[Rfam]
RNA sequence: AAAAUAAAUACAGUUCAACUUAAGACAGUAGGUGCCCUAGGGCUUAAUAUCCUACCGAGGUUGGAAAGCUUAUAAAUAGAUAAAUAUUAUUAUGCUAUUUAUGUGCCCUUUCCGUCUCGGAAAGGGCACUUUUGGUAACACAUA
Numbered sequence: 001a002a003a004a005u006a007a008a009u010a011c012a013g014u015u016c017a018a019c020u021u022a023a024g025a026c027a028g029u030a031g032g033u034g035c036c037c038u039a040g041g042g043c044u045u046a047a048u049a050u051c052c053u054a055c056c057g058a059g060g061u062u063g064g065a066a067a068g069c070u071u072a073u074a075a076a077u078a079g080a081u082a083a084a085u086a087u088u089a090u091u092a093u094g095c096u097a098u099u100u101a102u103g104u105g106c107c108c109u110u111u112c113c114g115u116c117u118c119g120g121a122a123a124g125g126g127c128a129c130u131u132u133u134g135g136u137a138a139c140a141c142a143u144a
Stems, first nucleotide, its partner, number of pairs: 028055005034043003103129010

A member of the RNA family "Ribosomal protein L10 leader" from Anaerobranca californiensis, 144 nucleotides long. By type it is a cis-regulatory leader. Lineage of the source: Bacteria > Bacillota > Eubacteriales > Anaerobranca > Anaerobranca californiensis. The match comes from Rfam's covariance-model search (83 bits).